[Rfam]
RNA sequence: UGAGAUUUUCAGGGUCGGGUGAGUUCAUCAAUAUAUAUUAAGAUUGAUGAAUAAUUCCCUACCGGCGGUAUAGCCCGCGACUUGGCUGCUGUAAGUCAGCAGCUGACUGAACCGGUGGAAUUCCGGUGCCGACGGUAUAGUCCGGAUGAAAGAAAAUCGAG
Numbered sequence: 001u002g003a004g005a006u007u008u009u010c011a012g013g014g015u016c017g018g019g020u021g022a023g024u025u026c027a028u029c030a031a032u033a034u035a036u037a038u039u040a041a042g043a044u045u046g047a048u049g050a051a052u053a054a055u056u057c058c059c060u061a062c063c064g065g066c067g068g069u070a071u072a073g074c075c076c077g078c079g080a081c082u083u084g085g086c087u088g089c090u091g092u093a094a095g096u097c098a099g100c101a102g103c104u105g106a107c108u109g110a111a112c113c114g115g116u117g118g119a120a121u122u123c124c125g126g127u128g129c130c131g132a133c134g135g136u137a138u139a140g141u142c143c144g145g146a147u148g149a150a151a152g153a154a155a156a157u158c159g160a161g
Base pairs, nucleotide, nucleotide: 004158005157006156007155008154009153010152017059018058019057061141062140063131064130065078066077067076068075073129074128082106083105084104085103111127112126113125114124115123133144134143135142

The record is a 161-nucleotide RNA sequence from Gracilinema caldarium, which matches "FMN riboswitch aptamer (RFN element)" in Rfam. Its family is annotated with FMN binding in the Gene Ontology.